[Rfam]
RNA: t44 RNA
Organism: Microbulbifer sp. ZGT114
RNA sequence: CAGCGAAUGCCAAAACGUCACACACACACCGGCACAUGCGCCUGGGUGUCUCUUCCCGCGUUAUCGCAGGCUGGGAUUGGUGCAUGGGGUGUGUGGAGGAUAUAAC
Numbered sequence: 001c002a003g004c005g006a007a008u009g010c011c012a013a014a015a016c017g018u019c020a021c022a023c024a025c026a027c028a029c030c031g032g033c034a035c036a037u038g039c040g041c042c043u044g045g046g047u048g049u050c051u052c053u054u055c056c057c058g059c060g061u062u063a064u065c066g067c068a069g070g071c072u073g074g075g076a077u078u079g080g081u082g083c084a085u086g087g088g089g090u091g092u093g094u095g096g097a098g099g100a101u102a103u104a105a106c
Base pairs, nucleotide, nucleotide: 023095024094025093026092027091028090029089030088035086036085037084038083039082040081041080042079048077049076050075051074052073
Dot-bracket structure: ......................((((((((....((((((((.....(((((....................))))).)))))))).))))))))...........